Rfam assigns this 160-nucleotide sequence from Hydrogenispora ethanolica to the family "M-box riboswitch aptamer (ykoK leader)".
Nucleotides: 160
Base pairs, nucleotide, nucleotide: 006155008153010151011146013098015141016140017139020135021134022133025131026130027129028128029127030126031125032124039116041114042113043112046074048072049071055066056065057064058063082107083106084105088101089100090099
Number, partner (000 for none) and nucleotide at each position: 001000g002000u003000a004000u005000a006155g007000a008153c009000u010151c011146g012000g013098u014000a015141g016140g017139u018000g019000a020135g021134g022133c023000u024000c025131c026130u027129a028128c029127a030126a031125g032124g033000a034000u035000a036000a037000g038000g039116g040000u041114u042113g043112c044000u045000a046074c047000c048072g049071c050000g051000u052000a053000a054000g055066a056065u057064u058063g059000g060000a061000g062000a063058c064057a065056a066055u067000c068000u069000g070000a071049g072048c073000u074046g075000g076000u077000c078000a079000a080000c081000a082107g083106a084105u085000u086000u087000u088101g089100c090099c091000g092000a093000a094000u095000u096000c097000a098013a099090g100089g101088c102000a103000u104000c105084a106083u107082c108000u109000a110000a111000c112043g113042c114041a115000u116039c117000u118000u119000c120000a121000a122000c123000g124032c125031c126030u127029u128028g129027u130026a131025g132000u133022g134021c135020c136000a137000a138000a139017a140016c141015u142000c143000g144000g145000a146011c147000g148000a149000g150000a151010g152000u153008g154000a155006u156000g157000g158000g159000g160000u
Pairs were carried over by alignment from the consensus structure. The match comes from Rfam's covariance-model search (115 bits).